[Rfam]
Description:
The record is a 78-nucleotide RNA sequence from Nicotiana attenuata, which matches "MIR6145 microRNA precursor family" in Rfam. The organism belongs to Nicotiana, within Eukaryota. The base pairs follow the family's consensus structure, which was predicted with RNAalifold. Rfam 15.1 lists 52 matches to the family in 9 species. The match comes from Rfam's covariance-model search (69 bits).

RNA sequence: GAAAUGAGCAUUGUUACAUGAAGCUCGGGCUCGCAUAAAAAUUUACCGGCCAAUGCUCAUGUUACAAUCCCCAUUGCU
Numbered sequence: 001g002a003a004a005u006g007a008g009c010a011u012u013g014u015u016a017c018a019u020g021a022a023g024c025u026c027g028g029g030c031u032c033g034c035a036u037a038a039a040a041a042u043u044u045a046c047c048g049g050c051c052a053a054u055g056c057u058c059a060u061g062u063u064a065c066a067a068u069c070c071c072c073a074u075u076g077c078u
Base pairs, nucleotide, nucleotide: 001077003075004074005073006072008070010068011067012066013065014064016062017061018060019059022057023056024055028051029050030049031048